[Rfam]
RNA sequence: GCAUUCGAAACGGGAGAACCGGCCACGCCGGUGCCGAAGGAGCAACCGCCCCGGAAACUCUCAGGCGACAGGGACCGUUUCGACACU
Numbered sequence: 001g002c003a004u005u006c007g008a009a010a011c012g013g014g015a016g017a018a019c020c021g022g023c024c025a026c027g028c029c030g031g032u033g034c035c036g037a038a039g040g041a042g043c044a045a046c047c048g049c050c051c052c053g054g055a056a057a058c059u060c061u062c063a064g065g066c067g068a069c070a071g072g073g074a075c076c077g078u079u080u081c082g083a084c085a086c087u
Stems, first nucleotide, its partner, number of pairs: 006082008019031004033066003036062002040060003046054002
The record is an 87-nucleotide RNA from Roseovarius halotolerans, which matches "Glycine riboswitch aptamer" in Rfam. It scores 58 bits against the family's covariance model. This family represents the bacterial glycine riboswitch. The source organism's lineage runs through Bacteria, Pseudomonadota, Alphaproteobacteria, Rhodobacterales and Roseovarius.